The record is a 64-nucleotide RNA sequence from Cylicocyclus nassatus, which matches "mir-234 microRNA precursor family" in Rfam. Its Rfam clan is "mir-137 clan". The base pairs follow the family's consensus structure, which was predicted with RNAalifold. The source organism's lineage runs through Eukaryota, Protostomia, Rhabditomorpha, Strongylidae and Cylicocyclus. The family has 9 seed sequences and 45 matches in Rfam 15.1.
RNA sequence: GCGAACGGUAUUCAAGUGCGAAUAAUACGCUGUUAUGAUAUUAUUGCUCGAGAAUACCCUUCGC
Numbered sequence: 001g002c003g004a005a006c007g008g009u010a011u012u013c014a015a016g017u018g019c020g021a022a023u024a025a026u027a028c029g030c031u032g033u034u035a036u037g038a039u040a041u042u043a044u045u046g047c048u049c050g051a052g053a054a055u056a057c058c059c060u061u062c063g064c
Stems, first nucleotide, its partner, number of pairs: 008057006018047002021045007